Shown here is a 148-nucleotide RNA from Vagococcus lutrae, a member of the family "glmS glucosamine-6-phosphate activated ribozyme aptamer". The literature on the family includes a 2004 paper in Nature by Winkler et al., "Control of gene expression by a natural metabolite-responsive ribozyme". It scores 79 bits against the family's covariance model. Lineage of the source: Bacteria > Bacillati > Bacillota > Lactobacillales > Vagococcus lutrae.
RNA sequence: UAUACCAAUUAAGCGCCAGCUCUGUGCGAACAGAAGACGAGGAGAGAGUUAAUCGAUAUGUCGGCGGGUGGCUCUCAGGGUACGCGCUCUUUAGUAUUUUAAGAAACCUGAUUGUGAGAUGAGACUAAACUUAAAAUACAUGCGUUUG
Numbered sequence: 001u002a003u004a005c006c007a008a009u010u011a012a013g014c015g016c017c018a019g020c021u022c023u024g025u026g027c028g029a030a031c032a033g034a035a036g037a038c039g040a041g042g043a044g045a046g047a048g049u050u051a052a053u054c055g056a057u058a059u060g061u062c063g064g065c066g067g068g069u070g071g072c073u074c075u076c077a078g079g080g081u082a083c084g085c086g087c088u089c090u091u092u093a094g095u096a097u098u099u100u101a102a103g104a105a106a107c108c109u110g111a112u113u114g115u116g117a118g119a120u121g122a123g124a125c126u127a128a129a130c131u132u133a134a135a136a137u138a139c140a141u142g143c144g145u146u147u148g
Base pairs, nucleotide, nucleotide: 021034022033023032024031025030044076045075046074047073048072053064054063055062056061077090078089079088080087095138096137097136098135099134100133101132108123109122111120112119113118